[Rfam]
RNA sequence: CCCGUUUACUCGGGACGGAAUGUGGCCGGGUCACCGGCUGAACCACAAG
Numbered sequence: 001c002c003c004g005u006u007u008a009c010u011c012g013g014g015a016c017g018g019a020a021u022g023u024g025g026c027c028g029g030g031u032c033a034c035c036g037g038c039u040g041a042a043c044c045a046c047a048a049g
Stems, first nucleotide, its partner, number of pairs: 001014004017044002024039005
The family of this 49-nucleotide sequence from Halostella sp. JP-L12 is "eL15-Euryarchaeota ribosomal protein leader". A reference for the family is Eckert and Weinberg (2020), "Discovery of 20 novel ribosomal leader candidates in bacteria and archaea", BMC Microbiol.